A member of the RNA family "Vault RNA" from Mizuhopecten yessoensis, 108 nucleotides long.

RNA sequence: GUGUUGGCUCAGUCGUGUUGUUACUUCGUUUGACUAUUAAAUAUUUGUUAUCGUACAAAACCGUAGGGUCAAGCCCUAUAAUAGCUACUGGCGCAAUCCAACAUUUUU
Numbered sequence: 001g002u003g004u005u006g007g008c009u010c011a012g013u014c015g016u017g018u019u020g021u022u023a024c025u026u027c028g029u030u031u032g033a034c035u036a037u038u039a040a041a042u043a044u045u046u047g048u049u050a051u052c053g054u055a056c057a058a059a060a061c062c063g064u065a066g067g068g069u070c071a072a073g074c075c076c077u078a079u080a081a082u083a084g085c086u087a088c089u090g091g092c093g094c095a096a097u098c099c100a101a102c103a104u105u106u107u108u
Base pairs, nucleotide, nucleotide: 002103003102004101005100006099007098012092013091014090015089017088018087020085025073026072028070

The match comes from Rfam's covariance-model search (38 bits). Rfam's curators write: This family of RNAs are found as part of the enigmatic vault ribonucleoprotein complex. Pairs were carried over by alignment from the consensus structure, which is taken from published work.